[Rfam]
A member of the RNA family "Iron response element II" from Cricetulus griseus, 31 nucleotides long.
RNA sequence: ACAUUAUCAAUUACAGUGUUGACUAUAAUGU
Numbered sequence: 001a002c003a004u005u006a007u008c009a010a011u012u013a014c015a016g017u018g019u020u021g022a023c024u025a026u027a028a029u030g031u
Base pairs, nucleotide, nucleotide: 001031002030003029004028005027006026007025009024011022012021013020014018

Rfam 15.1 lists 5,197 matches to the family in 722 species. Lineage of the source: Eukaryota > Amniota > Myomorpha > Muroidea > Cricetulus. It scores 31 bits against the family's covariance model. The family's consensus secondary structure is taken from published work. From the family's description: IRE, TFRC, SLC40A1, SDHB, SLC11A2, CDC42BPA, ACO2, ALAS2_H.SAPIENS, CDC14A, EPAS1, ALAS2, qoxD, Hao1, NDUFS1, transferrin, Aconitate.